[Rfam]
RNA sequence: CUUGGGGGGGGGGUGCCUCAGCCCAGAUUGUGAGAGUGCGCAGGCCAGGCUGAGGGACCCCACUGGUGCACA
Numbered sequence: 001c002u003u004g005g006g007g008g009g010g011g012g013g014u015g016c017c018u019c020a021g022c023c024c025a026g027a028u029u030g031u032g033a034g035a036g037u038g039c040g041c042a043g044g045c046c047a048g049g050c051u052g053a054g055g056g057a058c059c060c061c062a063c064u065g066g067u068g069c070a071c072a
Stems, first nucleotide, its partner, number of pairs: 003070002006067001008063001010061005016055008026045001028043005
The record is a 72-nucleotide sequence from Myotis lucifugus, which matches "mir-9193 microRNA precursor family" in Rfam. The family's consensus secondary structure was predicted with RNAalifold. Lineage of the source: Eukaryota > Vertebrata > Sarcopterygii > Yangochiroptera > Myotis.